[Rfam]
RNA sequence: GGCGAUAAACGAAGUUCGGAAUAGACGUUACGGACCCGGGGGCGGUACCCGGCGCCUCCACCAUGUGCCGAUGGCCGAUCGCGGUCGUCGGCAGAUGAUGGGGGCGAAACAGGAUCGACGUGCGUAGUAAAGGGAUGCUCUUUCGCCCGGCAUGAUACCGCCGUUAUCGGGUCAAUCCUACAAGUGCCAACGACAACGAAAUGGCGCUCGCUGCCUAA
Numbered sequence: 001g002g003c004g005a006u007a008a009a010c011g012a013a014g015u016u017c018g019g020a021a022u023a024g025a026c027g028u029u030a031c032g033g034a035c036c037c038g039g040g041g042g043c044g045g046u047a048c049c050c051g052g053c054g055c056c057u058c059c060a061c062c063a064u065g066u067g068c069c070g071a072u073g074g075c076c077g078a079u080c081g082c083g084g085u086c087g088u089c090g091g092c093a094g095a096u097g098a099u100g101g102g103g104g105c106g107a108a109a110c111a112g113g114a115u116c117g118a119c120g121u122g123c124g125u126a127g128u129a130a131a132g133g134g135a136u137g138c139u140c141u142u143u144c145g146c147c148c149g150g151c152a153u154g155a156u157a158c159c160g161c162c163g164u165u166a167u168c169g170g171g172u173c174a175a176u177c178c179u180a181c182a183a184g185u186g187c188c189a190a191c192g193a194c195a196a197c198g199a200a201a202u203g204g205c206g207c208u209c210g211c212u213g214c215c216u217a218a
Base pairs, nucleotide, nucleotide: 001147002146003145004144005143014136015135016134017133026124027123028122030121031120032119036052037051038050039049040048053106054105055104056103057102058101059100148163149162150161151160

permuted transfer-messenger RNA: a 218-nucleotide sequence from Zavarzinia compransoris. Gene Ontology term of the family: RNA catabolic process. NCBI's taxonomy places the organism under Bacteria, Pseudomonadati, Rhodospirillales, Zavarziniaceae, Zavarzinia.